[Rfam]
RNA sequence: GAACCACGGUUGAAAUAAGAUUUGUCAUGAGAAGUCAGCAGACUCCAUAGUACUUGAUGAGGUCGACAUCAUUAAGGAAGGGA
Numbered sequence: 001g002a003a004c005c006a007c008g009g010u011u012g013a014a015a016u017a018a019g020a021u022u023u024g025u026c027a028u029g030a031g032a033a034g035u036c037a038g039c040a041g042a043c044u045c046c047a048u049a050g051u052a053c054u055u056g057a058u059g060a061g062g063u064c065g066a067c068a069u070c071a072u073u074a075a076g077g078a079a080g081g082g083a
Stems, first nucleotide, its partner, number of pairs: 001022002005019001008016001010014001034043003044083003053076008
Dot-bracket structure: ((..(..(.(...).)..).))...........(((....)))(((......((((((((........))))))))....)))